A member of the RNA family "Vault RNA" from Ameiurus melas, 94 nucleotides long. The family's consensus secondary structure is taken from published work. It scores 58 bits against the family's covariance model. The organism belongs to Ameiurus, within Eukaryota. Rfam describes the family as follows. This family of RNAs are found as part of the enigmatic vault ribonucleoprotein complex. The complex consists of a major vault protein (MVP), two minor vault proteins (VPARP and TEP1), and several small untranslated RNA molecules. It has been suggested that the vault complex is involved in drug resistance.

RNA sequence: GCGUCAGUGUAGCCAAGCGGUUACUUCCAAACAAUUGUUUCUCUAACAAUCUCGGGCAACCGGGCUCGAACCGCAGGCGCUGUCUGGCGUUUUG
Dot-bracket structure: .((((((....(((..((((....(((.(....................................).))))))).))).....)))))).....